Rfam assigns this 385-nucleotide RNA sequence from Bifidobacterium commune to the family "Bacterial RNase P class A".

RNA sequence: UGAGACCUCUUGAUGGCCGCGGCUGUAGUUGACUUUGGUCAGUACUGCUGAGGAACUUCCGGGCUCCAUAGAGCACGAUGGCGGAUAACGUCCGCCCAGGGCGACCUGAGAGCAAGCGCAACAGAAAGCAAACCGCCCGAUCAAUCGGGUAAGGGUGAAACGGCGGUGCAAGAGACCACCGGGCCGCUGGUAACAGUCGGCCGCAAGGCAAGCCUCAUCGGGAGCAAGGCCAAGCAGAAGGCACGCCAUGGCGUUCGACAUGGCAAGGGUUGCUCGCCCGGCCUUCGGGUAGGCCGCUAGAGCCUGGCGGCAACGCCAGGUCGAGAUGGAUGGCCAUCCGCGUGGAAACACGUGACAAAACCCGGGGUAUACGAGGUCUCACCCC
Numbered sequence: 001u002g003a004g005a006c007c008u009c010u011u012g013a014u015g016g017c018c019g020c021g022g023c024u025g026u027a028g029u030u031g032a033c034u035u036u037g038g039u040c041a042g043u044a045c046u047g048c049u050g051a052g053g054a055a056c057u058u059c060c061g062g063g064c065u066c067c068a069u070a071g072a073g074c075a076c077g078a079u080g081g082c083g084g085a086u087a088a089c090g091u092c093c094g095c096c097c098a099g100g101g102c103g104a105c106c107u108g109a110g111a112g113c114a115a116g117c118g119c120a121a122c123a124g125a126a127a128g129c130a131a132a133c134c135g136c137c138c139g140a141u142c143a144a145u146c147g148g149g150u151a152a153g154g155g156u157g158a159a160a161c162g163g164c165g166g167u168g169c170a171a172g173a174g175a176c177c178a179c180c181g182g183g184c185c186g187c188u189g190g191u192a193a194c195a196g197u198c199g200g201c202c203g204c205a206a207g208g209c210a211a212g213c214c215u216c217a218u219c220g221g222g223a224g225c226a227a228g229g230c231c232a233a234g235c236a237g238a239a240g241g242c243a244c245g246c247c248a249u250g251g252c253g254u255u256c257g258a259c260a261u262g263g264c265a266a267g268g269g270u271u272g273c274u275c276g277c278c279c280g281g282c283c284u285u286c287g288g289g290u291a292g293g294c295c296g297c298u299a300g301a302g303c304c305u306g307g308c309g310g311c312a313a314c315g316c317c318a319g320g321u322c323g324a325g326a327u328g329g330a331u332g333g334c335c336a337u338c339c340g341c342g343u344g345g346a347a348a349c350a351c352g353u354g355a356c357a358a359a360a361c362c363c364g365g366g367g368u369a370u371a372c373g374a375g376g377u378c379u380c381a382c383c384c385c
Stems, first nucleotide, its partner, number of pairs: 001381009012338007020050004025045003055368003059365005064224004071275004076220005081095005096110001097108004111215002116213002118209002133154002135150006162180002165177003181204001182202005187196003228295004237286006267279004302321008
Dot-bracket structure: (((((((((..(((((((.((((.(((...............))).))))....[[[.[[[[[((((...[[[[.((((((((((.....)))))(((((....)))).)((...((((.............((((((((....))))))..)).......((.(((.......))).))(((((((((....))).))))).)...))..)))))))))))))...((((.....((((((........................((((.]]]])))).)))))).....))))......((((((((....))))))))..........)))))))......................]]]]]]]]....)))))))))....
The match comes from Rfam's covariance-model search (288 bits). The family's consensus secondary structure is taken from published work.